[Rfam]
RNA sequence: AAACACUGAGGUCGGAAAGGCUCCCGACGCUCCUCUUAUAGGGAAUCUGAGAUGCAGGAUACGCCGCCCUGCCAGUGUUU
Numbered sequence: 001a002a003a004c005a006c007u008g009a010g011g012u013c014g015g016a017a018a019g020g021c022u023c024c025c026g027a028c029g030c031u032c033c034u035c036u037u038a039u040a041g042g043g044a045a046u047c048u049g050a051g052a053u054g055c056a057g058g059a060u061a062c063g064c065c066g067c068c069c070u071g072c073c074a075g076u077g078u079u080u
Stems, first nucleotide, its partner, number of pairs: 001080008011028005019065003030049001031043004054072005
Description:
The record is an 80-nucleotide sequence, which matches "skipping-rope RNA" in Rfam. The sequence is in the family's curated seed alignment. The base pairs follow the family's consensus structure, which is taken from published work.